[Rfam]
RNA sequence: AAAAGCAUUACAGGGUGAAUCCUCUAUUGGCAGGAGACGCUGAUGACUCAAUACAUUUUGUCAUCAUUUUCCUCUGCCAAAGGAGAUUUGCCUAGCAAUUUUUUC
Numbered sequence: 001a002a003a004a005g006c007a008u009u010a011c012a013g014g015g016u017g018a019a020u021c022c023u024c025u026a027u028u029g030g031c032a033g034g035a036g037a038c039g040c041u042g043a044u045g046a047c048u049c050a051a052u053a054c055a056u057u058u059u060g061u062c063a064u065c066a067u068u069u070u071c072c073u074c075u076g077c078c079a080a081a082g083g084a085g086a087u088u089u090g091c092c093u094a095g096c097a098a099u100u101u102u103u104u105c
Base pairs, nucleotide, nucleotide: 005101007099008098009097011095013093014092015091016090017089018088019087022085023084024083025082028079029078030077031076032075033074034073036071
Shown here is a 105-nucleotide RNA from Raphanus sativus, a member of the family "mir-399 microRNA precursor family". From the family's description: mir-399 was identified in both Arabidopsis thaliana and Oryza sativa computationally and was later experimentally verified. mir-399 is thought to target mRNAs coding for a phosphatase transporter. The mature sequence is excised from the 3' arm of the hairpin. It scores 70 bits against the family's covariance model. The source organism's lineage runs through Eukaryota, Streptophyta, Spermatophyta, Brassicaceae and Raphanus.